The family of this 45-nucleotide RNA from Edaphobacter acidisoli is "Acido-Lenti-1 RNA".
RNA sequence: CCUGGGGCUGCGCCCCAGGCUGGUAUGGAGCGCGCCUUUGGCGCU
Numbered sequence: 001c002c003u004g005g006g007g008c009u010g011c012g013c014c015c016c017a018g019g020c021u022g023g024u025a026u027g028g029a030g031c032g033c034g035c036c037u038u039u040g041g042c043g044c045u
Stems, first nucleotide, its partner, number of pairs: 001019008032044005
The organism belongs to Edaphobacter, within Bacteria.